A member of the RNA family "mir-278 microRNA precursor family" from Frieseomelitta varia, 75 nucleotides long. Gene Ontology terms of the family: miRNA-mediated post-transcriptional gene silencing and RISC complex. The base pairs follow the family's consensus structure, which was predicted with RNAalifold.
RNA sequence: UGUGUGUCCGGAUGAGGUCUCUAUCGACCGUGAUUUAAUUUCAUAAGGUCGGUGGGACUUUCGUCCGUUUGCAAG
Numbered sequence: 001u002g003u004g005u006g007u008c009c010g011g012a013u014g015a016g017g018u019c020u021c022u023a024u025c026g027a028c029c030g031u032g033a034u035u036u037a038a039u040u041u042c043a044u045a046a047g048g049u050c051g052g053u054g055g056g057a058c059u060u061u062c063g064u065c066c067g068u069u070u071g072c073a074a075g
Base pairs, nucleotide, nucleotide: 003073004072005071006070009067010066011065012064013063014062015061016059017058018057019056020055022054023053025051026050027049028048029047